Background: Shown here is a 59-nucleotide sequence from Propithecus coquereli, a member of the family "U7 small nuclear RNA". The match comes from Rfam's covariance-model search (49 bits). Taxonomically the source falls in Propithecus (Eukaryota, Gnathostomata, Amniota, Euarchontoglires).

[Rfam]
RNA sequence: UGGUAUUACAGCUCUUGUAGAAUUUGUCUAGCUGGUUUUCCAGUUUUUACUGGAAAUAA
Number, nucleotide and partner (000 for none) at each position: 001u000002g000003g000004u000005a000006u000007u000008a000009c000010a000011g000012c000013u000014c000015u000016u000017g000018u000019a000020g000021a000022a000023u000024u000025u000026g000027u000028c000029u000030a000031g000032c000033u000034g000035g000036u059037u056038u055039u054040c053041c052042a051043g050044u049045u000046u000047u000048u000049a044050c043051u042052g041053g040054a039055a038056a037057u000058a000059a036